[Rfam]
RNA sequence: CUGUCUGAGGAGCGCUGCAACGGGUCAUCGAAUCCGCCAGGCUCAGACACCUCCUAAAACGGCGCUCGCUGUAC
Numbered sequence: 001c002u003g004u005c006u007g008a009g010g011a012g013c014g015c016u017g018c019a020a021c022g023g024g025u026c027a028u029c030g031a032a033u034c035c036g037c038c039a040g041g042c043u044c045a046g047a048c049a050c051c052u053c054c055u056a057a058a059a060c061g062g063c064g065c066u067c068g069c070u071g072u073a074c
Stems, first nucleotide, its partner, number of pairs: 002049007021036005
Rfam assigns this 74-nucleotide sequence from Ectothiorhodospira marina to the family "SAH (S-adenosyl-L-homocysteine) riboswitch aptamer". Rfam 15.1 lists 1,354 matches to the family in 1,132 species. For this family Rfam cites "Riboswitches that sense S-adenosylhomocysteine and activate genes involved in coenzyme recycling" (Wang et al., Mol Cell, 2008).